[Rfam]
RNA sequence: GCCCCAGUCCGGGCCCCUCUGGCGAGAGAUGCCGGUCCUCUCGCGAUGUCGGACAUUUUUU
Numbered sequence: 001g002c003c004c005c006a007g008u009c010c011g012g013g014c015c016c017c018u019c020u021g022g023c024g025a026g027a028g029a030u031g032c033c034g035g036u037c038c039u040c041u042c043g044c045g046a047u048g049u050c051g052g053a054c055a056u057u058u059u060u061u
Stems, first nucleotide, its partner, number of pairs: 007054006022044007
A member of the RNA family "terC RNA" from Pelagibacterium luteolum, 61 nucleotides long. Pairs were carried over by alignment from the consensus structure, which is taken from published work. The match comes from Rfam's covariance-model search (55 bits).